Bacillaceae-1 RNA: a 63-nucleotide RNA from Psychrobacillus insolitus. The source organism's lineage runs through Bacteria, Bacillati, Bacilli, Bacillaceae and Psychrobacillus. Pairs were carried over by alignment from the consensus structure, which is taken from published work.
RNA sequence: GGGUAGGUCAUGUCUGUUAUGCCACAUCCUGUGGCAUAACAGACAUGACCUGCUUCGUGAAGG
Numbered sequence: 001g002g003g004u005a006g007g008u009c010a011u012g013u014c015u016g017u018u019a020u021g022c023c024a025c026a027u028c029c030u031g032u033g034g035c036a037u038a039a040c041a042g043a044c045a046u047g048a049c050c051u052g053c054u055u056c057g058u059g060a061a062g063g
Base pairs, nucleotide, nucleotide: 011045012044013043014042015041016040017039021035022034023033024032025031049063050062051061053059